[Rfam]
RNA: Alphacoronavirus 5'UTR
Organism: Alphacoronavirus amsterdamense
RNA sequence: ACUUUGUGUCUACUCCUCUCAACUAAACGAAAUUUUUCUAGUGCUGUCAUUUGUUAUGGCAGUCCUAGUGUAAUUGAAAUUUCGUCAAGUUUGUAAACUGGUUAGGCAAGUGUUGUAUUUUCUGUGUUUAAGCACUGGUGGUUCUGUCCACUAGUGCACACAUUGAUACUUAAGUGGUGUUCUGUCACUGCUUAUUGUGGAAGCAACGUUCUGUCGUUGUGGAAACCAAUAACUGCUAACCAUGUUUUACAAUCAAGUGACACUUGCUG
Numbered sequence: 001a002c003u004u005u006g007u008g009u010c011u012a013c014u015c016c017u018c019u020c021a022a023c024u025a026a027a028c029g030a031a032a033u034u035u036u037u038c039u040a041g042u043g044c045u046g047u048c049a050u051u052u053g054u055u056a057u058g059g060c061a062g063u064c065c066u067a068g069u070g071u072a073a074u075u076g077a078a079a080u081u082u083c084g085u086c087a088a089g090u091u092u093g094u095a096a097a098c099u100g101g102u103u104a105g106g107c108a109a110g111u112g113u114u115g116u117a118u119u120u121u122c123u124g125u126g127u128u129u130a131a132g133c134a135c136u137g138g139u140g141g142u143u144c145u146g147u148c149c150a151c152u153a154g155u156g157c158a159c160a161c162a163u164u165g166a167u168a169c170u171u172a173a174g175u176g177g178u179g180u181u182c183u184g185u186c187a188c189u190g191c192u193u194a195u196u197g198u199g200g201a202a203g204c205a206a207c208g209u210u211c212u213g214u215c216g217u218u219g220u221g222g223a224a225a226c227c228a229a230u231a232a233c234u235g236c237u238a239a240c241c242a243u244g245u246u247u248u249a250c251a252a253u254c255a256a257g258u259g260a261c262a263c264u265u266g267c268u269g
Stems, first nucleotide, its partner, number of pairs: 001009002029083007037070001038068004043063008091252003099242006106236002109234002111231005124163004134155008172193008197226002203220006